[Rfam]
Nucleotides: 057
Stems, first nucleotide, its partner, number of pairs: 001053012014040001019034005
Number, partner (000 for none) and nucleotide at each position: 001053a002052a003051a004050g005049g006048a007047g008046c009045a010044a011043u012042a013000a014040c015000g016000u017000c018000c019034u020033c021032u022031u023030g024000a025000u026000a027000a028000a029000a030023c031022a032021a033020g034019a035000a036000g037000g038000a039000a040014g041000c042012u043011a044010u045009u046008g047007c048006u049005c050004c051003u052002u053001u054000u055000g056000g057000u
The record is a 57-nucleotide RNA sequence from Cynara cardunculus, which matches "Plastid-psbA-3 3UTR RNA" in Rfam. Plastid psbA-3 is a non-coding RNA (ncRNA) present in plastids. It was identified in inverted repeat sequences in the 3 prime untranslate region (3UTR) of photosystem II quinone-binding protein (psbA). The match comes from Rfam's covariance-model search (59 bits). The source organism's lineage runs through Eukaryota, Streptophytina, asterids, Asterales and Cynara cardunculus subsp. cardunculus. The base pairs follow the family's consensus structure, which was predicted with LocARNA.